RNA sequence: GAAAACUAUCGAAAUACUAUCGACGAAUAACACUUAUGAAGAAAUGUAAUACGUCGUUGGUGUUUCCAUAGUUUGA
Number, nucleotide and partner (000 for none) at each position: 001g000002a000003a074004a073005a072006c071007u070008a069009u068010c000011g066012a065013a064014a063015u062016a061017c000018u000019a000020u000021c056022g055023a054024c053025g052026a000027a050028u000029a000030a047031c046032a045033c000034u043035u042036a000037u000038g000039a000040a000041g000042a035043a034044a000045u032046g031047u030048a000049a000050u027051a000052c025053g024054u023055c022056g021057u000058u000059g000060g000061u016062g015063u014064u013065u012066c011067c000068a009069u008070a007071g006072u005073u004074u003075g000076a000
This 76-nucleotide RNA from Caenorhabditis elegans belongs to the Rfam family "mir-70 microRNA precursor family". The organism belongs to Caenorhabditis, within Eukaryota. The base pairs follow the family's consensus structure, which was predicted with RNAalifold. The literature on the family includes a 2001 paper in Science by Lau et al., "An abundant class of tiny RNAs with probable regulatory roles in Caenorhabditis elegans".